The family of this 127-nucleotide RNA from Jejuibacter calystegiae is "Phenylalanine leader peptide". For this family Rfam cites "Two groups of phenylalanine biosynthetic operon leader peptides genes: a high level of apparently incidental frameshifting in decoding Escherichia coli pheL" (Gurvich et al., Nucleic Acids Res, 2010). Lineage of the source: Bacteria > Pseudomonadati > Gammaproteobacteria > Enterobacterales > Jejuibacter. By type it is a cis-regulatory leader. The family's consensus secondary structure was predicted with CMfinder. The match comes from Rfam's covariance-model search (105 bits).
[Rfam]
RNA sequence: CGUGAAACUUCAGCCGUUCUUCUUCGCAUUCUUCUUUUUUACCUUCCCCUGAAUGGGAGGCAUUUCGUCAUGUAAAAAGAAUGCGAAGACGAACUGACAGGCCUCCCAAACGGGAGGCCUUUUUUAU
Numbered sequence: 001c002g003u004g005a006a007a008c009u010u011c012a013g014c015c016g017u018u019c020u021u022c023u024u025c026g027c028a029u030u031c032u033u034c035u036u037u038u039u040u041a042c043c044u045u046c047c048c049c050u051g052a053a054u055g056g057g058a059g060g061c062a063u064u065u066c067g068u069c070a071u072g073u074a075a076a077a078a079g080a081a082u083g084c085g086a087a088g089a090c091g092a093a094c095u096g097a098c099a100g101g102c103c104u105c106c107c108a109a110a111c112g113g114g115a116g117g118c119c120u121u122u123u124u125u126a127u
Stems, first nucleotide, its partner, number of pairs: 016094004021089013039075004045058004059069003099120009